Rfam assigns this 433-nucleotide RNA from Marilutibacter maris to the family "cspA thermoregulator".
Rfam classes the family as an RNA thermoregulator.
RNA sequence: GGCAAGUACCGGUAAUGUUCGUAGUGCUGUGUUAGUCAGGGGUCACUCUGAAUCGUGACCCGGUGUCGUUGAUCUUCACGAUCCGCCCAUCGUUUCGCCUCGUCUGCUCCUUGCAACCAGCUUCAACGCCGCAUCCGCGGCUCAUUCAAAACGCUCCAGGAGCAACAUCAAGAUGUCCAAUCGCGAAACCGGUACCGUCAAGUGGUUCAACGACGCCAAGGGCUUCGGCUUCAUCAGCCGCGAGAACGGUGAGGACGUGUUCGUCCACUUCCGUUCGAUCCAGGGCUCGGGCUUCAAGAGCCUGCAGGAAGGCCAGAAGGUCAGCUUCACCGUCGUCCAGGGCCAGAAGGGCCUGCAGGCCGACGCCGUCGAGGCGCUGUAAGGCCAACGCCAAUAUCGCCAUGCUCCGCGCCGCCACCGGCGGUGCGGACUG
Numbered sequence: 001g002g003c004a005a006g007u008a009c010c011g012g013u014a015a016u017g018u019u020c021g022u023a024g025u026g027c028u029g030u031g032u033u034a035g036u037c038a039g040g041g042g043u044c045a046c047u048c049u050g051a052a053u054c055g056u057g058a059c060c061c062g063g064u065g066u067c068g069u070u071g072a073u074c075u076u077c078a079c080g081a082u083c084c085g086c087c088c089a090u091c092g093u094u095u096c097g098c099c100u101c102g103u104c105u106g107c108u109c110c111u112u113g114c115a116a117c118c119a120g121c122u123u124c125a126a127c128g129c130c131g132c133a134u135c136c137g138c139g140g141c142u143c144a145u146u147c148a149a150a151a152c153g154c155u156c157c158a159g160g161a162g163c164a165a166c167a168u169c170a171a172g173a174u175g176u177c178c179a180a181u182c183g184c185g186a187a188a189c190c191g192g193u194a195c196c197g198u199c200a201a202g203u204g205g206u207u208c209a210a211c212g213a214c215g216c217c218a219a220g221g222g223c224u225u226c227g228g229c230u231u232c233a234u235c236a237g238c239c240g241c242g243a244g245a246a247c248g249g250u251g252a253g254g255a256c257g258u259g260u261u262c263g264u265c266c267a268c269u270u271c272c273g274u275u276c277g278a279u280c281c282a283g284g285g286c287u288c289g290g291g292c293u294u295c296a297a298g299a300g301c302c303u304g305c306a307g308g309a310a311g312g313c314c315a316g317a318a319g320g321u322c323a324g325c326u327u328c329a330c331c332g333u334c335g336u337c338c339a340g341g342g343c344c345a346g347a348a349g350g351g352c353c354u355g356c357a358g359g360c361c362g363a364c365g366c367c368g369u370c371g372a373g374g375c376g377c378u379g380u381a382a383g384g385c386c387a388a389c390g391c392c393a394a395u396a397u398c399g400c401c402a403u404g405c406u407c408c409g410c411g412c413c414g415c416c417a418c419c420g421g422c423g424g425u426g427c428g429g430a431c432u433g
Base pairs, nucleotide, nucleotide: 001010002009021241022240026238027237028236029235039232040231041230042229043228044227046222047221048220049219062217063216064215065214067212068211069210070209071208072207074205075204079175080174082172085169092163093162094161095160096159097157100116102114128141129140130139131138132137177192178191181188244334246333247332248331249330254262255261267321268320269319270318274315276312279306281304282303283302284301287300339354340353341352343351344350355380356379357378358377359375360374361373364371383401384400385399387397406430407429408428409427410426411425412424413423414422415421416420
The match comes from Rfam's covariance-model search (84 bits). Its family is annotated with response to temperature stimulus and regulation of translation in the Gene Ontology.